[Rfam]
RNA: Small nucleolar RNA snoR53Y
RNA sequence: GUUCCCUAUGAUGUUCUCGGUCCGACCAUGCUAAUUCUGAUCAUUGCAUGAUUGAGACCUUCUCUAUAUGAUUUUCUGAGGGAACA
Numbered sequence: 001g002u003u004c005c006c007u008a009u010g011a012u013g014u015u016c017u018c019g020g021u022c023c024g025a026c027c028a029u030g031c032u033a034a035u036u037c038u039g040a041u042c043a044u045u046g047c048a049u050g051a052u053u054g055a056g057a058c059c060u061u062c063u064c065u066a067u068a069u070g071a072u073u074u075u076c077u078g079a080g081g082g083a084a085c086a
Base pairs, nucleotide, nucleotide: 001085002084003083004082005081006080007079